[Rfam]
RNA sequence: UAAUGAAAGAAAAAGGAGCUAUGCGUCAACAUAGCCCCAUUGUAGAACCGUUAAAAAGACGGUGACAGUAAUAAAUAGUUUUUUAAC
Numbered sequence: 001u002a003a004u005g006a007a008a009g010a011a012a013a014a015g016g017a018g019c020u021a022u023g024c025g026u027c028a029a030c031a032u033a034g035c036c037c038c039a040u041u042g043u044a045g046a047a048c049c050g051u052u053a054a055a056a057a058g059a060c061g062g063u064g065a066c067a068g069u070a071a072u073a074a075a076u077a078g079u080u081u082u083u084u085a086a087c
Base pairs, nucleotide, nucleotide: 020033021032022031023030047063048062049061050060051059052058